[Rfam]
RNA sequence: UGAGUGUUAUGAUGGUGGAUUAAUGUAAAUUAGUCUUAGUCUAGCUCUGGUCUACCGCUAGAGAAUUUUCUCUAGCGG
Numbered sequence: 001u002g003a004g005u006g007u008u009a010u011g012a013u014g015g016u017g018g019a020u021u022a023a024u025g026u027a028a029a030u031u032a033g034u035c036u037u038a039g040u041c042u043a044g045c046u047c048u049g050g051u052c053u054a055c056c057g058c059u060a061g062a063g064a065a066u067u068u069u070c071u072c073u074a075g076c077g078g
Stems, first nucleotide, its partner, number of pairs: 002047004011041003017036006055078009
Dot-bracket structure: .((((.....(((...((((((........))))))..)))..)))).......(((((((((......)))))))))
RNA: L17 ribosomal protein downstream element